[Rfam]
RNA sequence: CCUGCGACUUGCGUCCCAGGCUGUCGGCUGUCGUCGCUUCGCGACU
Dot-bracket structure: ((((.(((....))).))))............(((((...))))).
RNA: Acido-Lenti-1 RNA
Organism: Rosistilla oblonga